[Rfam]
RNA: Small nucleolar RNA SNORD79
RNA sequence: UGCUGUGUAUGAUGAUUUGGAAAUAUCAAUGGGAAUCUCUCUGAACAAUAAUGAGGGAACUCUUUACACUGAAUCAGUA
Numbered sequence: 001u002g003c004u005g006u007g008u009a010u011g012a013u014g015a016u017u018u019g020g021a022a023a024u025a026u027c028a029a030u031g032g033g034a035a036u037c038u039c040u041c042u043g044a045a046c047a048a049u050a051a052u053g054a055g056g057g058a059a060c061u062c063u064u065u066a067c068a069c070u071g072a073a074u075c076a077g078u079a
Stems, first nucleotide, its partner, number of pairs: 001079005